[Rfam]
The record is a 60-nucleotide RNA sequence from Erinaceus europaeus, which matches "U7 small nuclear RNA" in Rfam.

RNA sequence: UAGUGUUACAGCUCUAUUAGAAUUUGUCUAGCUCGUCUUCCAGUCUCACGGGAAGCCCCC
Numbered sequence: 001u002a003g004u005g006u007u008a009c010a011g012c013u014c015u016a017u018u019a020g021a022a023u024u025u026g027u028c029u030a031g032c033u034c035g036u037c038u039u040c041c042a043g044u045c046u047c048a049c050g051g052g053a054a055g056c057c058c059c060c
Stems, first nucleotide, its partner, number of pairs: 035057001037055005043049002
It scores 48 bits against the family's covariance model. The family's consensus secondary structure was predicted with PFOLD.